This 96-nucleotide RNA from Frankia alni belongs to the Rfam family "Glycine riboswitch aptamer". Rfam's curators write: This family represents the bacterial glycine riboswitch. Glycine riboswitches usually consist of two metabolite-binding aptamers domains with similar structures in tandem. The aptamers cooperatively bind glycine to regulate the expression of downstream genes.
RNA sequence: UCACACCCGCGCGGGAGAGUCCCGGCCGCGACUGCCGGGACGCCGAAGGAGCAAGCUCUCCCCAUAAACUCUCAGGCCCCCAACCGCCGGGUCAGG
Number, nucleotide and partner (000 for none) at each position: 001u000002c000003a000004c000005a000006c091007c090008c089009g088010c000011g087012c086013g085014g084015g000016a000017g000018a000019g000020u040021c039022c038023c037024g036025g035026c034027c000028g000029c000030g000031a000032c000033u000034g026035c025036c024037g023038g022039g021040a020041c000042g077043c076044c075045g073046a072047a000048g000049g071050a070051g069052c000053a000054a000055g065056c000057u000058c000059u000060c000061c000062c000063c000064a000065u055066a000067a000068a000069c051070u050071c049072u046073c045074a000075g044076g043077c042078c000079c000080c000081c000082a000083a000084c014085c013086g012087c011088c009089g008090g007091g006092u000093c000094a000095g000096g000